[Rfam]
RNA sequence: CUCAGCCACACUUGUAAGUCACUUUGGAUAAAAGCAUCUGCUAAAUGACUGUAC
Numbered sequence: 001c002u003c004a005g006c007c008a009c010a011c012u013u014g015u016a017a018g019u020c021a022c023u024u025u026g027g028a029u030a031a032a033a034g035c036a037u038c039u040g041c042u043a044a045a046u047g048a049c050u051g052u053a054c
Base pairs, nucleotide, nucleotide: 013043014041015040016039022034023033024032025031